[Rfam]
The record is a 49-nucleotide RNA sequence from Pipistrellus kuhlii, which matches "KRAS 3' UTR cis-regulatory element" in Rfam. AU-rich 49 nt fragment in KRAS 3'UTR. Its sequence but not the secondary is necessary and sufficient for reporter repression in HeLa cells. The family has 2 seed sequences and 104 matches in Rfam 15.1. NCBI's taxonomy places the organism under Eukaryota, Deuterostomia, Euteleostomi, Sarcopterygii, Pipistrellus. A search with the family's covariance model found it, with a score of 52 bits. A reference for the family is Kim et al. (2016), "Cis-acting elements in its 3' UTR mediate post-transcriptional regulation of KRAS", Oncotarget.
RNA sequence: CAAAAAUAAUAUAUUUUUUCUAUAAAAGGGAAAAAAUGGAAAAAAAGGC
Number, nucleotide and partner (000 for none) at each position: 001c000002a000003a000004a000005a000006a000007u000008a000009a000010u000011a000012u000013a000014u045015u044016u043017u042018u041019u040020c039021u038022a037023u036024a000025a000026a000027a000028g000029g000030g000031a000032a000033a000034a000035a000036a023037u022038g021039g020040a019041a018042a017043a016044a015045a014046a000047g000048g000049c000